[Rfam]
Rfam assigns this 163-nucleotide sequence from Clostridium botulinum to the family "Group II catalytic intron D1-D4-3". The family has 406 seed sequences and 4,274 matches in Rfam 15.1.

RNA sequence: UCAAGCAUGAGGUUAAAUCUGAAGGAAGACCAAGGCAAACCUUGGUCUGAGGUAUACGAAUCACAUUUGAGGCUCAAACCUAUGGGUAAACUUGCUAAACAAAGUAAAGCCUUACAACUAUCAGAAAUAGCUAGAGUAAAUGUGACAGGUUUGAGCAAACUUA
Numbered sequence: 001u002c003a004a005g006c007a008u009g010a011g012g013u014u015a016a017a018u019c020u021g022a023a024g025g026a027a028g029a030c031c032a033a034g035g036c037a038a039a040c041c042u043u044g045g046u047c048u049g050a051g052g053u054a055u056a057c058g059a060a061u062c063a064c065a066u067u068u069g070a071g072g073c074u075c076a077a078a079c080c081u082a083u084g085g086g087u088a089a090a091c092u093u094g095c096u097a098a099a100c101a102a103a104g105u106a107a108a109g110c111c112u113u114a115c116a117a118c119u120a121u122c123a124g125a126a127a128u129a130g131c132u133a134g135a136g137u138a139a140a141u142g143u144g145a146c147a148g149g150u151u152u153g154a155g156c157a158a159a160c161u162u163a
Stems, first nucleotide, its partner, number of pairs: 001016001003014002006011001029162001035156002042154003045150005061145006072137003078132001080130004084112004090105004